[Rfam]
Rfam assigns this 386-nucleotide sequence from Cricetibacter osteomyelitidis to the family "Bacterial RNase P class A".
It is annotated as a ribozyme.
Pairs were carried over by alignment from the consensus structure, which is taken from published work.
Lineage of the source: Bacteria > Pseudomonadota > Gammaproteobacteria > Pasteurellales > Cricetibacter.
RNA sequence: CGAGUUGAUCAGGCAAUCGCCGGUUUAUUGAAGCCCUUAACCGCCGCAAGGCAAUCUAGCGGGACAAGUAAACGGGAGGAAAGUCCGGGCUACACAGGGCAGAGUGCCAGGUAACACCUGGGGGAGGCGACUCCACGACCAGUGCAACAGAGAGCAAACCGCCGAUGUUCGUAAGAGCAGGUAAGGGUGAAAGGGUGCGGUAAGAGCGCACCGCGUACGUGGUAACACGGCACGGCAAGGUAAACUCCACUCGUAGCAAGACCAAAUAGGAACCCAAUCGGCUGCCCGUCGAGGGUUCGGGUAGGUUGCUUGAGCGUUAGUGUGAAUUAACGCCUAGAUGAAUGAUUGUCCAACGACAGAACUCGGCUUAUCGAUCAACUCACCAA
Number, nucleotide and partner (000 for none) at each position: 001c000002g381003a380004g379005u378006u377007g376008a375009u374010c373011a371012g350013g349014c348015a347016a346017u345018c344019g000020c076021c075022g000023g073024u072025u071026u070027a069028u068029u000030g000031a000032a000033g000034c000035c000036c000037u000038u000039a000040a000041c000042c000043g000044c000045c000046g000047c000048a000049a000050g000051g000052c000053a000054a000055u000056c000057u000058a000059g000060c000061g000062g000063g000064a000065c000066a000067a000068g028069u027070a026071a025072a024073c023074g000075g021076g020077a000078g000079g000080a000081a369082a368083g367084u000085c366086c365087g364088g363089g362090c256091u255092a254093c253094a000095c000096a000097g287098g286099g285100c284101a000102g252103a251104g250105u249106g248107c121108c120109a119110g118111g117112u000113a000114a000115c000116a000117c111118c110119u109120g108121g107122g136123g134124g133125a132126g131127g000128c000129g000130a000131c126132u125133c124134c123135a000136c122137g247138a246139c000140c000141a000142g245143u244144g241145c240146a000147a000148c000149a000150g000151a000152g000153a000154g000155c000156a000157a000158a000159c186160c185161g182162c181163c180164g000165a000166u179167g178168u177169u176170c175171g000172u000173a000174a000175g170176a169177g168178c167179a166180g163181g162182u161183a000184a000185g160186g159187g000188u000189g000190a000191a000192a000193g000194g212195g211196u210197g209198c208199g207200g000201u000202a000203a000204g000205a000206g000207c199208g198209c197210a196211c195212c194213g236214c234215g233216u232217a000218c230219g228220u227221g226222g000223u000224a000225a000226c221227a220228c219229g000230g218231c000232a216233c215234g214235g000236c213237a000238a000239g000240g145241u144242a000243a000244a143245c142246u138247c137248c106249a105250c104251u103252c102253g093254u092255a091256g090257c000258a000259a000260g307261a306262c305263c304264a000265a000266a000267u000268a000269g000270g298271a297272a296273c295274c294275c293276a000277a000278u292279c291280g290281g289282c288283u000284g100285c099286c098287c097288g282289u281290c280291g279292a278293g275294g274295g273296u272297u271298c270299g000300g000301g000302u000303a000304g263305g262306u261307u260308g000309c000310u000311u000312g000313a000314g333315c332316g331317u330318u329319a328320g327321u326322g000323u000324g000325a000326a321327u320328u319329a318330a317331c316332g315333c314334c000335u000336a000337g000338a000339u000340g000341a000342a000343u000344g018345a017346u016347u015348g014349u013350c012351c000352a000353a000354c000355g000356a000357c000358a000359g000360a000361a000362c089363u088364c087365g086366g085367c083368u082369u081370a000371u011372c000373g010374a009375u008376c007377a006378a005379c004380u003381c002382a000383c000384c000385a000386a000